[Rfam]
RNA sequence: UAAAACUUAAAUAAUGAAAGCCCUACCUCUCUUUCAUCCUUACGGCUCCGAAGCCGUGCCAGUGUAAAUAAGGUUCUCUUAGUGGUU
Numbered sequence: 001u002a003a004a005a006c007u008u009a010a011a012u013a014a015u016g017a018a019a020g021c022c023c024u025a026c027c028u029c030u031c032u033u034u035c036a037u038c039c040u041u042a043c044g045g046c047u048c049c050g051a052a053g054c055c056g057u058g059c060c061a062g063u064g065u066a067a068a069u070a071a072g073g074u075u076c077u078c079u080u081a082g083u084g085g086u087u
Base pairs, nucleotide, nucleotide: 034067036065039062040061041058042057043056044055045054046053047052